The family of this 77-nucleotide sequence from Allobosea sp. LC85 is "Makes More Granules Regulator RNA (mmgR)".
The source organism's lineage runs through Bacteria, Pseudomonadota, Hyphomicrobiales, Alloboseaceae and Allobosea.
For this family Rfam cites "Evidence for a second class of S-adenosylmethionine riboswitches and other regulatory RNA motifs in alpha-proteobacteria" (Corbino et al., Genome Biol, 2005).
Rfam's curators write: SuhB later renamed mmgR (makes more granules regulator) was a putative non-coding RNA found multiple times in the Agrobacterium tumefaciens genome and related alpha-proteobacteria.
RNA sequence: UUCGUUUGCCCUCCUUGGGCGUUUCCUCCCUAGACUUGGGCCGCCACGAAAGUGCGCGGCCCUUUUUUCUGUGUCGC
Dot-bracket structure: .......((((.....)))).................(((((((((......)).)))))))...............
Numbered sequence: 001u002u003c004g005u006u007u008g009c010c011c012u013c014c015u016u017g018g019g020c021g022u023u024u025c026c027u028c029c030c031u032a033g034a035c036u037u038g039g040g041c042c043g044c045c046a047c048g049a050a051a052g053u054g055c056g057c058g059g060c061c062c063u064u065u066u067u068u069c070u071g072u073g074u075c076g077c
Stems, first nucleotide, its partner, number of pairs: 008020004038062007045054002